[Rfam]
The family of this 153-nucleotide RNA sequence from Hyphopichia burtonii is "Small nucleolar RNA snR8". Taxonomically the source falls in Hyphopichia burtonii (Eukaryota, Dikarya, saccharomyceta, Debaryomycetaceae). A search with the family's covariance model found it, with a score of 78 bits. Pairs were carried over by alignment from the consensus structure, which was predicted with WAR. It is annotated as an H/ACA-box small nucleolar RNA. On this family, see Parker et al., Mol Cell Biol 1988: "Genetic analysis of small nuclear RNAs in Saccharomyces cerevisiae: viable sextuple mutant".

RNA sequence: CUUCUUCUUUACUGAUACGCUUCCCAUUCACUGCACCAUUCUUUAUCGUGAAUGACUGGAGGGGAAAGGGAAGCAAGAAGAACUCGAACGACGACUCAUACCAAGUACGCCGCAGCCCAUGGUGUAUUUGGAUUCUGCGUCCUCGAAACAUGG
Numbered sequence: 001c002u003u004c005u006u007c008u009u010u011a012c013u014g015a016u017a018c019g020c021u022u023c024c025c026a027u028u029c030a031c032u033g034c035a036c037c038a039u040u041c042u043u044u045a046u047c048g049u050g051a052a053u054g055a056c057u058g059g060a061g062g063g064g065a066a067a068g069g070g071a072a073g074c075a076a077g078a079a080g081a082a083c084u085c086g087a088a089c090g091a092c093g094a095c096u097c098a099u100a101c102c103a104a105g106u107a108c109g110c111c112g113c114a115g116c117c118c119a120u121g122g123u124g125u126a127u128u129u130g131g132a133u134u135c136u137g138c139g140u141c142c143u144c145g146a147a148a149c150a151u152g153g
Stems, first nucleotide, its partner, number of pairs: 019074002022071002031061002034058002037054005085145003088140003101131003105127007